RNA sequence: UAUUUGUUUAUGAUGGCCACAGCCUAAAGUACACACGGCUGUGACUUGAUUCAAAAGA
Numbered sequence: 001u002a003u004u005u006g007u008u009u010a011u012g013a014u015g016g017c018c019a020c021a022g023c024c025u026a027a028a029g030u031a032c033a034c035a036c037g038g039c040u041g042u043g044a045c046u047u048g049a050u051u052c053a054a055a056a057g058a
Stems, first nucleotide, its partner, number of pairs: 001058001003056003015046002018043007029036002
This 58-nucleotide RNA sequence belongs to the Rfam family "Selenocysteine insertion sequence 1".
The sequence is in the family's curated seed alignment.
The incorporation of selenocysteine into a protein sequence is directed by an in-frame UGA codon (usually a stop codon) within the coding region of the mRNA. Selenoprotein mRNAs contain a conserved secondary structure in the 3' UTR that is required for the distinction of UGA stop from UGA selenocysteine. The selenocysteine insertion sequence (SECIS) is around 60 nt in length and adopts a hairpin structure which is sufficiently well-defined and conserved to act as a computational screen for selenoprotein genes.
Pairs were carried over by alignment from the consensus structure, which is taken from published work.